[Rfam]
RNA sequence: AGAACCUGCCUUUCAGGCAUCCUCUCCCAAAACUUCCAUGGCCCGGUCGGCAACGACCGGGUCUUUUUUUGUCCGCG
Number, nucleotide and partner (000 for none) at each position: 001a000002g000003a000004a000005c000006c000007u000008g018009c017010c016011u015012u000013u000014c000015a011016g010017g009018c008019a000020u000021c000022c000023u000024c000025u000026c000027c000028c000029a000030a000031a000032a000033c000034u000035u000036c000037c000038a000039u000040g063041g062042c061043c060044c059045g058046g057047u056048c055049g000050g000051c000052a000053a000054c000055g048056a047057c046058c045059g044060g043061g042062u041063c040064u000065u000066u000067u000068u000069u000070u000071g000072u000073c000074c000075g000076c000077g000